[Rfam]
RNA sequence: CGGGUUUACUCCUGGAUGUUACCGUUUCGCCCGGCCGGAGCCGGACGGCUUUGGUGUCUGAUUCGGUAAGAAUCGGGAGCACCAUCUGCGUAGGCGGGUGAUUUAAGGCUUGCGCCACCUACGGUCUUGGACAGCCCCCGCCAGGCAGGGACCCCAAUAGUGGCAGCCGACGGCGAACCGUCGGC
Numbered sequence: 001c002g003g004g005u006u007u008a009c010u011c012c013u014g015g016a017u018g019u020u021a022c023c024g025u026u027u028c029g030c031c032c033g034g035c036c037g038g039a040g041c042c043g044g045a046c047g048g049c050u051u052u053g054g055u056g057u058c059u060g061a062u063u064c065g066g067u068a069a070g071a072a073u074c075g076g077g078a079g080c081a082c083c084a085u086c087u088g089c090g091u092a093g094g095c096g097g098g099u100g101a102u103u104u105a106a107g108g109c110u111u112g113c114g115c116c117a118c119c120u121a122c123g124g125u126c127u128u129g130g131a132c133a134g135c136c137c138c139c140g141c142c143a144g145g146c147a148g149g150g151a152c153c154c155c156a157a158u159a160g161u162g163g164c165a166g167c168c169g170a171c172g173g174c175g176a177a178c179c180g181u182c183g184g185c
Base pairs, nucleotide, nucleotide: 002154003153004152005151006150007149011145012144013143014142024049028047029046031044032043033042034041035040052084053083054082055081056080057079058076059075060074061073062072063071064070088141089140090139093136094135095134102131103130104129105128106127107126108125109124110123166185167184168183169182170181171180

Rfam assigns this 185-nucleotide RNA sequence from Pseudomonas mangiferae to the family "Pseudomonas sRNA P27". On this family, see Livny et al., Nucleic Acids Res 2006: "Identification of 17 Pseudomonas aeruginosa sRNAs and prediction of sRNA-encoding genes in 10 diverse pathogens using the bioinformatic tool sRNAPredict2".